RNA sequence: CUCCCCGAAAUGCAUUUAGGUGCAGCCUUGUGGUAGAGUAUAUCAGAGGUAGAGCCACUGAUAGGAUGCGGGGGUUUCACCGCCUACCAAAUCCUGACAAACUCCGAAUGCUGAUAUAUAUACACAGGAGUGAGGGCCGGGGUGCUAAGGUCACGGUCCGAGAGGGAAAGAACCCAGAGCAACGGCUAAGGUCCCGAAGUUAUCGCUAAGUUGUUCAAACGAGGUCAGACUGCAUUGACAGCUAGGAUGUUGGCUUGGAAGCAGCCAUUCAUUUAAAGAGUGCGUAACAGCUCACUAGUCGAGCGGUUUGGCAUGGACAAUAAUCGGGCAUAAGCGAUACACCGAAGCCUUGCUGUCCGUUAGGGGCAGGUAGGGGAGCAUUCUGUAUGCGGAGAAGGAUAGCUGUGAGGCUUACUGGAGCGUACAGAAGAGAAAAU
Dot-bracket structure: ((((((....(((((....))))).(((((((....((((((((((.....(((....((..((((...((((((......)))).))...))))..))..)).).....))))))))).).)))))).)...((((((.(((......))).))))))....(((......)))...((((.(((...(((......(.((((((.............((..((((((((((.......(((((.(((..(((.........)))...)))(...)(...((......)).).)))))...)))))))))).))..................))))))))))...)))))))(((((.....)))))....))))))(.((((((((((......((..((((....))))..))...))))))))))..).....

The record is a 437-nucleotide part of an RNA from Thermaurantimonas aggregans, which matches "Bacterial large subunit ribosomal RNA" in Rfam. Rfam 15.1 lists 51,934 matches to the family in 10,816 species. A search with the family's covariance model found it, with a score of 2724 bits.